[Rfam]
RNA: Small nucleolar RNA SNORD99
Organism: Zapornia atra
Nucleotides: 071
Stems, first nucleotide, its partner, number of pairs: 001070005
Number, partner (000 for none) and nucleotide at each position: 001070c002069c003068u004067g005066g006000u007000c008000g009000g010000u011000g012000a013000u014000g015000a016000c017000u018000c019000c020000u021000c022000u023000c024000u025000u026000g027000g028000g029000a030000g031000a032000c033000a034000g035000u036000u037000g038000g039000a040000u041000g042000a043000a044000u045000c046000c047000u048000g049000c050000g051000g052000a053000u054000a055000u056000g057000g058000g059000g060000c061000u062000g063000a064000g065000g066005c067004c068003a069002g070001g071000u